[Rfam]
RNA: ssnA RNA
RNA sequence: AUAUAUACGGCUGUAAAGAAGUGUUUCGCACACGGGCUGGAAGUGAGG
Numbered sequence: 001a002u003a004u005a006u007a008c009g010g011c012u013g014u015a016a017a018g019a020a021g022u023g024u025u026u027c028g029c030a031c032a033c034g035g036g037c038u039g040g041a042a043g044u045g046a047g048g
Base pairs, nucleotide, nucleotide: 008039009038010037011036012035021033022032023031024030